[Rfam]
RNA sequence: AGAGUAGCUAUCUAUUUCUUAGUGAAGGCAAACUAAGGGUGCAUUAUAAAAUGCAUGGUAUUCCGCAUAUUGGCUUUGCGAAGUCGAUAUGGACAGGACAUAGUUAAAUUGCAAAUAACUAUGCAAGUAUUACUAUUUUCCAGGACGUUAUGUAACGUGCGGAAGAUAAAUAAUCAGAUUCAAAACAGUUCCACGUAAAUUGUUUGAACUCCUAUAUUAUUAUAUCAGUCGUGGCUGAUAAGGAUAGAGUCGCAAAUCUAUUCUUAUUUAUUAUGGGUUGAAAUUCCCUGGGGCA
Numbered sequence: 001a002g003a004g005u006a007g008c009u010a011u012c013u014a015u016u017u018c019u020u021a022g023u024g025a026a027g028g029c030a031a032a033c034u035a036a037g038g039g040u041g042c043a044u045u046a047u048a049a050a051a052u053g054c055a056u057g058g059u060a061u062u063c064c065g066c067a068u069a070u071u072g073g074c075u076u077u078g079c080g081a082a083g084u085c086g087a088u089a090u091g092g093a094c095a096g097g098a099c100a101u102a103g104u105u106a107a108a109u110u111g112c113a114a115a116u117a118a119c120u121a122u123g124c125a126a127g128u129a130u131u132a133c134u135a136u137u138u139u140c141c142a143g144g145a146c147g148u149u150a151u152g153u154a155a156c157g158u159g160c161g162g163a164a165g166a167u168a169a170a171u172a173a174u175c176a177g178a179u180u181c182a183a184a185a186c187a188g189u190u191c192c193a194c195g196u197a198a199a200u201u202g203u204u205u206g207a208a209c210u211c212c213u214a215u216a217u218u219a220u221u222a223u224a225u226c227a228g229u230c231g232u233g234g235c236u237g238a239u240a241a242g243g244a245u246a247g248a249g250u251c252g253c254a255a256a257u258c259u260a261u262u263c264u265u266a267u268u269u270a271u272u273a274u275g276g277g278u279u280g281a282a283a284u285u286c287c288c289u290g291g292g293g294c295a
Stems, first nucleotide, its partner, number of pairs: 001013003017038007039056007067090010095213004099123008129174004137165005145158002179208005185203003228239003242263007275288003
Rfam assigns this 295-nucleotide RNA to the family "RAGATH-15 RNA". Rfam's curators put it in the seed alignment. The family's consensus secondary structure is taken from published work. It is annotated as a small RNA. The literature on the family includes a 2015 paper in Nat Chem Biol by Weinberg et al., "New classes of self-cleaving ribozymes revealed by comparative genomics analysis".